Small nucleolar RNA SNORA74: a 205-nucleotide RNA sequence from Thinocorus orbignyianus.
The family is grouped with related families in Rfam's "SNORA74 clan".
Rfam links the family to the GO terms RNA processing and nucleolus.
For this family Rfam cites "Characterization of the intron-encoded U19 RNA, a new mammalian small nucleolar RNA that is not associated with fibrillarin" (Kiss et al., Mol Cell Biol, 1996).
U19 belongs to the H/ACA class of snoRNAs. snoRNAs bind a number of proteins (including dyskerin, Gar1p and Nop10p in the case of the H/ACA class) to form snoRNP complexes. This class are thought to guide the sites of modification of uridines to pseudouridines by forming direct base pairing interactions with substrate RNAs. Targets may include ribosomal and spliceosomal RNAs but the exact functions of many snoRNAs, including U19, are not confirmed.
RNA sequence: CCCAGCAAUAGUCAGCUACCUGUUGCUGCGUGGUGCCUGCGGUAGUGUUAUGCUGCUGGGAGAGGAAGGCGCUUGCCCAGUGGCUCCCGGCGCCGCCGGUGCCGUCCUGGCCUUCGGCGGCGGCGGGGUUUGGCAGCGCCCUGCAUCCUUGAGAGUGGAGUAACCCCUGCUCUGUGGGGUUAGUCCUAGAUGUGAUGCAGACAGC
Dot-bracket structure: (((((((.(.((..((((((((..((........)).)).))))))...))).)))))))........(((((..(......(((((((.((.((.....(((.....)))...)).)).))..)))))..)..))))).(((((((.........(((.(((((((........))))))).))).......))))))).....
The organism belongs to Thinocorus, within Eukaryota.